[Rfam]
RNA sequence: AUUUAACUUAUGUUCCGAGUCAAAGGACCUACAGGCUGUUUGCCCAAGGCCUUUGGCCAGAGCCAUGCUUGAGGCUCGAGGGUAAAGGGGGAAACCCUUUUGCCUCCCGGUGGAAAGGAACAGUCUGCUGUGGAUG
Numbered sequence: 001a002u003u004u005a006a007c008u009u010a011u012g013u014u015c016c017g018a019g020u021c022a023a024a025g026g027a028c029c030u031a032c033a034g035g036c037u038g039u040u041u042g043c044c045c046a047a048g049g050c051c052u053u054u055g056g057c058c059a060g061a062g063c064c065a066u067g068c069u070u071g072a073g074g075c076u077c078g079a080g081g082g083u084a085a086a087g088g089g090g091g092a093a094a095c096c097c098u099u100u101u102g103c104c105u106c107c108c109g110g111u112g113g114a115a116a117g118g119a120a121c122a123g124u125c126u127g128c129u130g131u132g133g134a135u136g
Stems, first nucleotide, its partner, number of pairs: 003130001011122006019057007028049002034044003060077005080105011106113002
RNA: Molybdenum/Tungsten riboswitch aptamer (Moco RNA motif)
Organism: Carboxydocella thermautotrophica